[Rfam]
RNA sequence: ACCGGAUACACGCGGAUCGGCAGGAGCGGGAGACCCAGGCAAGACGGACCACGAUGGCGGUGGUCCUAGGGGUGAAGCCACAUGGUGGCCGGGCAACUUUGUCAGCCCGAACCCGACAGGUCAUCUUUCGCAGGCGGAUGACGAAGGGCUU
Numbered sequence: 001a002c003c004g005g006a007u008a009c010a011c012g013c014g015g016a017u018c019g020g021c022a023g024g025a026g027c028g029g030g031a032g033a034c035c036c037a038g039g040c041a042a043g044a045c046g047g048a049c050c051a052c053g054a055u056g057g058c059g060g061u062g063g064u065c066c067u068a069g070g071g072g073u074g075a076a077g078c079c080a081c082a083u084g085g086u087g088g089c090c091g092g093g094c095a096a097c098u099u100u101g102u103c104a105g106c107c108c109g110a111a112c113c114c115g116a117c118a119g120g121u122c123a124u125c126u127u128u129c130g131c132a133g134g135c136g137g138a139u140g141a142c143g144a145a146g147g148g149c150u151u
Stems, first nucleotide, its partner, number of pairs: 002134002007025001009023001026131004030125002036069001070114003078088004091108004
Dot-bracket structure: .((...(.(.............).)((((((....(................................)(((.....((((...))))..((((..........))))...))).........))..)))).)).................
This 151-nucleotide sequence from Streptomyces mobaraensis belongs to the Rfam family "c-di-AMP riboswitch aptamer (ydaO/yuaA leader)".
Lineage of the source: Bacteria > Bacillati > Kitasatosporales > Streptomycetaceae > Streptomyces.
The match comes from Rfam's covariance-model search (49 bits).